Lysine riboswitch aptamer: a 174-nucleotide RNA from Lachnospiraceae bacterium TWA4. A search with the family's covariance model found it, with a score of 110 bits. Its family is annotated with lysine biosynthetic process in the Gene Ontology.
RNA sequence: UAUAGAAGUAGAGGUUGCGGAUUUUAUCAGUAAAGUAUUUGACGAUGUCAGGUUUCGGGAGACAAUAUUUGAAAGGAACAUCCGCCGAAGGAAUAGAUUACCUGUCUUUUUUAUUCCUGGGCAAUGGGUGAAGAACCCCUUGACUGUCACCGUUGGUGGAGUGCUACGUACUAA
Dot-bracket structure: .....(.((((.....((((((.((.......(((((((........................)))))))......)).))))))...(((((((((..(......)..)))))))))((.(((.((((.....)))).))).)).(((((...)))))....)))).).....